[Rfam]
RNA sequence: GGCAGAGUAGGUGCGCACGUGUGGUGCUCUCCCUUGGGGGAGAGACAGUGCCGGCGGGACGGGGAGUUGUCCGCCGGACGAAUAGCACGAGGGGAAAUCCCCCCAGGCUUGCAGUGUGCCCACCGCAUCCCGCUGCC
Numbered sequence: 001g002g003c004a005g006a007g008u009a010g011g012u013g014c015g016c017a018c019g020u021g022u023g024g025u026g027c028u029c030u031c032c033c034u035u036g037g038g039g040g041a042g043a044g045a046c047a048g049u050g051c052c053g054g055c056g057g058g059a060c061g062g063g064g065a066g067u068u069g070u071c072c073g074c075c076g077g078a079c080g081a082a083u084a085g086c087a088c089g090a091g092g093g094g095a096a097a098u099c100c101c102c103c104c105a106g107g108c109u110u111g112c113a114g115u116g117u118g119c120c121c122a123c124c125g126c127a128u129c130c131c132g133c134u135g136c137c
Base pairs, nucleotide, nucleotide: 001137002136003135004134005133010124011123012122013121015119016118017117018116019115020113021112022111048079049078051077052076053075054074055073056072057071058070062130063129064128066126084109085108086107
Rfam assigns this 137-nucleotide sequence from Pseudoflavonifractor sp. An176 to the family "THF (Tetrahydrofolate) riboswitch aptamer". On this family, see Ames et al., Chem Biol 2010: "A eubacterial riboswitch class that senses the coenzyme tetrahydrofolate". The family's consensus secondary structure is taken from published work. The match comes from Rfam's covariance-model search (61 bits). The source organism's lineage runs through Bacteria, Bacillota, Eubacteriales, Oscillospiraceae and Pseudoflavonifractor. Gene Ontology term of the family: tetrahydrofolate metabolic process.